Annotation: Shown here is a 171-nucleotide RNA from Streptomyces armeniacus, a member of the family "c-di-AMP riboswitch aptamer (ydaO/yuaA leader)".

[Rfam]
RNA sequence: GUCGCGUCAGCGCCGUAGGCAGGAGCGGGGGAACCAGGUAAGCGCCGCGCCCCGAACGGGGAGCGGCUAGGGGCGAAACCGUACGAGUCCGCGUCACGCGGCCGCGUACGGCCGGGCACUCAACCGGUCCGAGCCCGACAGCUCACCUCGCAGGCGUCGGUGAGGAAGUCA
Numbered sequence: 001g002u003c004g005c006g007u008c009a010g011c012g013c014c015g016u017a018g019g020c021a022g023g024a025g026c027g028g029g030g031g032a033a034c035c036a037g038g039u040a041a042g043c044g045c046c047g048c049g050c051c052c053c054g055a056a057c058g059g060g061g062a063g064c065g066g067c068u069a070g071g072g073g074c075g076a077a078a079c080c081g082u083a084c085g086a087g088u089c090c091g092c093g094u095c096a097c098g099c100g101g102c103c104g105c106g107u108a109c110g111g112c113c114g115g116g117c118a119c120u121c122a123a124c125c126g127g128u129c130c131g132a133g134c135c136c137g138a139c140a141g142c143u144c145a146c147c148u149c150g151c152a153g154g155c156g157u158c159g160g161u162g163a164g165g166a167a168g169u170c171a
Base pairs, nucleotide, nucleotide: 001155002154003153007024008023025151026150027149028148029147030146035070071136072135073134079111080110081109082108083107084106085105114130115129116128117127

A search with the family's covariance model found it, with a score of 48 bits.